RNA sequence: CUGGCAACAAUAUCCUGAUGCUGCCUGAGCAUGUUGGGAAAAGCUCCAGCAUCAGUGAUUUUGUUCCUAG
Dot-bracket structure: .....(((((.((((((((((((.......................))))))))).))).))))).....
RNA: mir-338 microRNA precursor family
Organism: Acipenser ruthenus